[Rfam]
The family of this 106-nucleotide RNA from Miscanthus lutarioriparius is "MIR5565 microRNA precursor family". NCBI's taxonomy places the organism under Eukaryota, Petrosaviidae, Poaceae, Panicoideae, Miscanthus.

RNA sequence: GCAUGUAUCCAUCUCAAUUCACAUAUGUUGAAGUGGAUUGGAGUGGAAUUAAACUAAGUUUCAUUCUAAUCCACUCCAACACAUGUGGAUUGAAGUGGAUACACAU
Numbered sequence: 001g002c003a004u005g006u007a008u009c010c011a012u013c014u015c016a017a018u019u020c021a022c023a024u025a026u027g028u029u030g031a032a033g034u035g036g037a038u039u040g041g042a043g044u045g046g047a048a049u050u051a052a053a054c055u056a057a058g059u060u061u062c063a064u065u066c067u068a069a070u071c072c073a074c075u076c077c078a079a080c081a082c083a084u085g086u087g088g089a090u091u092g093a094a095g096u097g098g099a100u101a102c103a104c105a106u
Stems, first nucleotide, its partner, number of pairs: 004103009014093011026081005033074009043064003
Gene Ontology terms of the family: RISC complex and miRNA-mediated post-transcriptional gene silencing. A search with the family's covariance model found it, with a score of 88 bits.